[Rfam]
RNA: Plastid-ccsA-ndhD-2 3UTR RNA
Organism: Wisteria sinensis
RNA sequence: CGAGAACCCUUUGAAUCAAGUAAUGUAAUGAUUCAAAGGGUUCUCA
Numbered sequence: 001c002g003a004g005a006a007c008c009c010u011u012u013g014a015a016u017c018a019a020g021u022a023a024u025g026u027a028a029u030g031a032u033u034c035a036a037a038g039g040g041u042u043c044u045c046a
Base pairs, nucleotide, nucleotide: 002045003044004043005042006041007040008039009038010037011036012035013034014033015032016031017030018029